[Rfam]
RNA sequence: ACGUCAAGCCAUCUAGUGGACGGUUUGGCUCGGGCGCCGACGAAGGUCGUGGCAAGCUGCGAUAAGCCUGGGCGAGGUGCAUGCAGCCCUUGAACCCGGGAUUGCCUAAUGGGACAUCCUGUCAUGGAAAACCCAUGGCGCUCGCGUCAGUGAGCGGGAACCCCGCGAAAUGAAACAUCUUAGUAACGGGAGGAAGAGAAAGCAAACCGCGAUGCCCUUAGUAACGGCGAGUGAAAAGGGUGAAGGGCAAACCGAACCCGAUCGGGAAACCGAUUGGGAAUGUGGAGUUGCAGGACUCGAUCGCCUCCUUCUCGAGGAAGCUGAAGCCGCUGGAAUGCGACGCCAGAGAGGGUGAAAGCCCCGUAAGCGUGACUUGAAAGGUGUUGGAUUGGGUAUCCUGAGUACCGUGCAUUGGAUAUUGCGCGGAAAGCUGGGAGUAGUAACUCCCAACCCUAAAUACGUCCCGAGACCGAUAGCGAACGCAGUACCAUGAGGGAAAACUGAAAAGCAUCCCGAAAGGGAGAUGAAAAGAGCCCGAAACCAGAUGGCGAUAGAGG
Dot-bracket structure: .......(((((((.(.....(((..((((((((((.......(((((((........))).....((((((...(((.......)))......))))))...))))...(((....)))....................(((((....)))))......(((((......((....)).......)))).).........((.....))...(((((.....((.....))....)))))..((((....(((.......((((....)))).........)))..........((((.....(.(............(((...(.(((......))).)..(...).(((.......)))...)))............).)......))))...........(((((((........)))))))......(((((......)))))..)))).....)).)))))).))................((....))....)).................................).....).)))))))........
Rfam assigns this 557-nucleotide part of an RNA from candidate division MSBL1 archaeon SCGC-AAA259A05 to the family "Archaeal large subunit ribosomal RNA". Taxonomically the source falls in candidate division MSBL1 (Archaea, Methanobacteriati, Methanobacteriota). Its Rfam clan is "LSU clan".